RNA sequence: GAAGGCAAAGCUCUGUGCAGAUACACGAUGAAGUGUUGCUCAGAGC
Numbered sequence: 001g002a003a004g005g006c007a008a009a010g011c012u013c014u015g016u017g018c019a020g021a022u023a024c025a026c027g028a029u030g031a032a033g034u035g036u037u038g039c040u041c042a043g044a045g046c
Base pairs, nucleotide, nucleotide: 011045012044013043014042015041017039018038019037